[Rfam]
RNA sequence: UGACGGGGGCCCGCACAAGCGGUGGAGCAUGUGGUUUAAUUCGAAGCAACGCGAAGAACCUUACCUGGUCUUGACAUCCCGAUGCCGUAUUCAGAGAUGUAUAUUUCCCUUCGGGGACAUCGGUGACAGGUGCUGCAUGGCUGUCGUCAGCUCGUGUCGCGAGAUGUUGGGUUAAGUCCCGCAACGAGCGCAACCCCUGCCAUUAGUUGCCAUCAUUAAGUUGGGCACUCUAGUGGGACAGCCGGAGUAAUCCGGAGGAAGGUGGGGACGACGUCAAGUCAUCAUGGCCCUUAUGACCAGGGCUACACACGUGCUACAAUGGCAAGGACAACGGGAUGCGACCUCGCGAGAGUGAGCCAACCUCAAAAACCUUGUCUUAGUUCGGAUUGCAGUCUGCAACUCGACUGCAUGAAGUCGGAAUCGCUAGUAAUCGCAGGUCAGCAUACUGCGGUGAAUACGUUCCCGGGCCUUGUACACACCGCCCGUCACACCACGAAAGUCGGUUUUGCCAGAAGCGGGUGACCGAAUCUUCGGAUAGGAGCCUUCGAAGGCAGGACUGGUGAUUGGGGUGAAGUCGUAACAAGG
Numbered sequence: 001u002g003a004c005g006g007g008g009g010c011c012c013g014c015a016c017a018a019g020c021g022g023u024g025g026a027g028c029a030u031g032u033g034g035u036u037u038a039a040u041u042c043g044a045a046g047c048a049a050c051g052c053g054a055a056g057a058a059c060c061u062u063a064c065c066u067g068g069u070c071u072u073g074a075c076a077u078c079c080c081g082a083u084g085c086c087g088u089a090u091u092c093a094g095a096g097a098u099g100u101a102u103a104u105u106u107c108c109c110u111u112c113g114g115g116g117a118c119a120u121c122g123g124u125g126a127c128a129g130g131u132g133c134u135g136c137a138u139g140g141c142u143g144u145c146g147u148c149a150g151c152u153c154g155u156g157u158c159g160c161g162a163g164a165u166g167u168u169g170g171g172u173u174a175a176g177u178c179c180c181g182c183a184a185c186g187a188g189c190g191c192a193a194c195c196c197c198u199g200c201c202a203u204u205a206g207u208u209g210c211c212a213u214c215a216u217u218a219a220g221u222u223g224g225g226c227a228c229u230c231u232a233g234u235g236g237g238a239c240a241g242c243c244g245g246a247g248u249a250a251u252c253c254g255g256a257g258g259a260a261g262g263u264g265g266g267g268a269c270g271a272c273g274u275c276a277a278g279u280c281a282u283c284a285u286g287g288c289c290c291u292u293a294u295g296a297c298c299a300g301g302g303c304u305a306c307a308c309a310c311g312u313g314c315u316a317c318a319a320u321g322g323c324a325a326g327g328a329c330a331a332c333g334g335g336a337u338g339c340g341a342c343c344u345c346g347c348g349a350g351a352g353u354g355a356g357c358c359a360a361c362c363u364c365a366a367a368a369a370c371c372u373u374g375u376c377u378u379a380g381u382u383c384g385g386a387u388u389g390c391a392g393u394c395u396g397c398a399a400c401u402c403g404a405c406u407g408c409a410u411g412a413a414g415u416c417g418g419a420a421u422c423g424c425u426a427g428u429a430a431u432c433g434c435a436g437g438u439c440a441g442c443a444u445a446c447u448g449c450g451g452u453g454a455a456u457a458c459g460u461u462c463c464c465g466g467g468c469c470u471u472g473u474a475c476a477c478a479c480c481g482c483c484c485g486u487c488a489c490a491c492c493a494c495g496a497a498a499g500u501c502g503g504u505u506u507u508g509c510c511a512g513a514a515g516c517g518g519g520u521g522a523c524c525g526a527a528u529c530u531u532c533g534g535a536u537a538g539g540a541g542c543c544u545u546c547g548a549a550g551g552c553a554g555g556a557c558u559g560g561u562g563a564u565u566g567g568g569g570u571g572a573a574g575u576c577g578u579a580a581c582a583a584g585g
Stems, first nucleotide, its partner, number of pairs: 001476002003473003007470007015460002019424005024317001026315008034306002040055004064301007077126002079123005087104004092099002106117004129290002132288004138284002140279003143275001145273002150189006156165003168181004195267004200236007210225002214223002239258001242255005321376007333364003338357002343352003383414001388409007430452007479584001481581001484577002489571004494566003499561012515546001517544004523539002528535002
RNA: Bacterial small subunit ribosomal RNA, nucleotides 899 to 1483
Organism: Desulfurispirillum indicum